[Rfam]
RNA sequence: UUGCAGGAGCCCCCGGGCUACUCUGAUUUAUUUCAAUGAUAUGAAGAAAUAAGCCCCAAAGCUCCUGCUAAAUUAACUGACAUUCGUGUUGCAGUUCUGUCUCUUUUUGAAUCCGGCUUAACUGUGUCAAAGCAAUGUCUAGAUUU
Number, nucleotide and partner (000 for none) at each position: 001u000002u000003g068004c067005a066006g065007g064008a063009g062010c061011c000012c000013c000014c000015g056016g055017g054018c053019u052020a050021c000022u047023c046024u045025g000026a000027u000028u000029u000030a000031u000032u000033u000034c000035a000036a000037u000038g000039a000040u000041a000042u000043g000044a000045a024046g023047a022048a000049a000050u020051a000052a019053g018054c017055c016056c015057c000058a000059a000060a000061g010062c009063u008064c007065c006066u005067g004068c003069u000070a000071a000072a000073u000074u000075a000076a000077c000078u000079g139080a138081c137082a136083u135084u134085c000086g000087u129088g128089u000090u126091g125092c124093a123094g122095u121096u000097c000098u000099g117100u116101c115102u000103c000104u000105u000106u000107u000108u000109g000110a000111a000112u000113c000114c000115g101116g100117c099118u000119u000120a000121a095122c094123u093124g092125u091126g090127u000128c088129a087130a000131a000132g000133c000134a084135a083136u082137g081138u080139c079140u000141a000142g000143a000144u000145u000146u000

Shown here is a 146-nucleotide RNA from Capsella rubella, a member of the family "small nucleolar RNA snoR134". It is annotated as an H/ACA-box small nucleolar RNA. It scores 102 bits against the family's covariance model. The organism belongs to Capsella, within Eukaryota.